[Rfam]
RNA sequence: AACACACUACCUGUAAGUCGCUUUGGAUAAAAGCGUCUGAUAAAUGACUGUAA
Numbered sequence: 001a002a003c004a005c006a007c008u009a010c011c012u013g014u015a016a017g018u019c020g021c022u023u024u025g026g027a028u029a030a031a032a033g034c035g036u037c038u039g040a041u042a043a044a045u046g047a048c049u050g051u052a053a
Base pairs, nucleotide, nucleotide: 012042014039015038019035020034021033022032023031024030